[Rfam]
RNA sequence: GGAAAUUUGAGAGGAGCUGUCCUUAGUACGAGAGGACCGGGAUGGACACACCGCUGGUGUACCAGUUGUUCUGCCAAGAGCAUCGCUGGGUAGCUAUGUGUGGACGGGAUAAACGCUGAAAGCAUCUAAGCGUGAAGCCCCCCUCAAGAUGAGAUUUCCCAUCACUUCAAGUGAGUAAGACCCCUGAGAGAUGAUCAGGUAGAUAGGUUGGGAGUGGAAGUACAGCGAUGUAUGGAGCGGACCAAUACUAAUCGGUCGAGG
Numbered sequence: 001g002g003a004a005a006u007u008u009g010a011g012a013g014g015a016g017c018u019g020u021c022c023u024u025a026g027u028a029c030g031a032g033a034g035g036a037c038c039g040g041g042a043u044g045g046a047c048a049c050a051c052c053g054c055u056g057g058u059g060u061a062c063c064a065g066u067u068g069u070u071c072u073g074c075c076a077a078g079a080g081c082a083u084c085g086c087u088g089g090g091u092a093g094c095u096a097u098g099u100g101u102g103g104a105c106g107g108g109a110u111a112a113a114c115g116c117u118g119a120a121a122g123c124a125u126c127u128a129a130g131c132g133u134g135a136a137g138c139c140c141c142c143c144u145c146a147a148g149a150u151g152a153g154a155u156u157u158c159c160c161a162u163c164a165c166u167u168c169a170a171g172u173g174a175g176u177a178a179g180a181c182c183c184c185u186g187a188g189a190g191a192u193g194a195u196c197a198g199g200u201a202g203a204u205a206g207g208u209u210g211g212g213a214g215u216g217g218a219a220g221u222a223c224a225g226c227g228a229u230g231u232a233u234g235g236a237g238c239g240g241a242c243c244a245a246u247a248c249u250a251a252u253c254g255g256u257c258g259a260g261g
Stems, first nucleotide, its partner, number of pairs: 001159008011145004017045007047102005055096003062089005067082006106140003113133005162174003176259001179257004183199005204250003207246005214238001220233005

Rfam assigns this 261-nucleotide part of an RNA from Trichococcus palustris to the family "Bacterial large subunit ribosomal RNA". The source organism's lineage runs through Bacteria, Bacillati, Bacilli, Carnobacteriaceae and Trichococcus. The family's consensus secondary structure is taken from published work.